[Rfam]
RNA sequence: ACACUGAAUGAAGGCCCCCCACUUAGUGUAUUUGACAAGCUGAGUUGGACACUCCAUAUGGCAGGGUGUCAGUUUGUCAAAUACCCCAAGUGAGAGGUCACUUGUC
Numbered sequence: 001a002c003a004c005u006g007a008a009u010g011a012a013g014g015c016c017c018c019c020c021a022c023u024u025a026g027u028g029u030a031u032u033u034g035a036c037a038a039g040c041u042g043a044g045u046u047g048g049a050c051a052c053u054c055c056a057u058a059u060g061g062c063a064g065g066g067u068g069u070c071a072g073u074u075u076g077u078c079a080a081a082u083a084c085c086c087c088a089a090g091u092g093a094g095a096g097g098u099c100a101c102u103u104g105u106c
Stems, first nucleotide, its partner, number of pairs: 020092004026086001028084014048070004053065002

mir-223 microRNA precursor family: a 106-nucleotide RNA sequence from Megalops atlanticus. For this family Rfam cites "Vertebrate microRNA genes" (Lim et al., Science, 2003).